[Rfam]
RNA sequence: CGGCGAUGUCUCCUGCCCGUUAUACAUGGAGACACUCGGCCAUGCUGUGGGUAGCAUCUAGUUAUGCAAGCCUUAGGCGCAUUGUCGUCAAAAGUAUGGUGUGAGGACGGGUUAGAUGCCCA
Numbered sequence: 001c002g003g004c005g006a007u008g009u010c011u012c013c014u015g016c017c018c019g020u021u022a023u024a025c026a027u028g029g030a031g032a033c034a035c036u037c038g039g040c041c042a043u044g045c046u047g048u049g050g051g052u053a054g055c056a057u058c059u060a061g062u063u064a065u066g067c068a069a070g071c072c073u074u075a076g077g078c079g080c081a082u083u084g085u086c087g088u089c090a091a092a093a094g095u096a097u098g099g100u101g102u103g104a105g106g107a108c109g110g111g112u113u114a115g116a117u118g119c120c121c122a
Base pairs, nucleotide, nucleotide: 001019002018003017007034008033009032010031011030012029013028035105036104037103038102039100040099041098042097043096044095045094046093049073050072051071052070054067055066056065076089077088078087079086109121110120111119112118